This 75-nucleotide RNA from Eleutherodactylus coqui belongs to the Rfam family "mir-205 microRNA precursor family". Rfam links the family to the GO terms RISC complex and miRNA-mediated post-transcriptional gene silencing.

Nucleotides: 075
Stems, first nucleotide, its partner, number of pairs: 011064006019056003023051003028046003
Number, partner (000 for none) and nucleotide at each position: 001000u002000a003000c004000u005000g006000a007000u008000g009000u010000c011064c012063u013062u014061c015060a016059u017000u018000c019056c020055a021054c022000c023051g024050g025049a026000u027000c028046c029045u030044g031000u032000g033000c034000u035000a036000a037000a038000a039000a040000c041000a042000u043000c044030c045029a046028g047000a048000u049025u050024c051023c052000c053000a054021g055020u056019g057000g058000c059016a060015u061014g062013a063012a064011g065000c066000g067000c068000a069000u070000u071000u072000g073000u074000u075000g
The match comes from Rfam's covariance-model search (66 bits). The literature on the family includes a 2005 paper in Genes Dev by Chen et al., "The developmental miRNA profiles of zebrafish as determined by small RNA cloning". The family has 44 seed sequences and 1,154 matches in Rfam 15.1. Pairs were carried over by alignment from the consensus structure, which was predicted with RNAalifold.